[Rfam]
RNA sequence: GUGCAUCCAGUAGGGAAUUGAACCAACGAAUUCGCCAAUUAUGAGUUUGGUGCUUUAACCAUCAACCAUGGAUGC
Numbered sequence: 001g002u003g004c005a006u007c008c009a010g011u012a013g014g015g016a017a018u019u020g021a022a023c024c025a026a027c028g029a030a031u032u033c034g035c036c037a038a039u040u041a042u043g044a045g046u047u048u049g050g051u052g053c054u055u056u057a058a059c060c061a062u063c064a065a066c067c068a069u070g071g072a073u074g075c
Stems, first nucleotide, its partner, number of pairs: 003075006010027002013024002041069003045066003049063004
RNA: Plastid-ycf2 5UTR RNA
Organism: Capsicum baccatum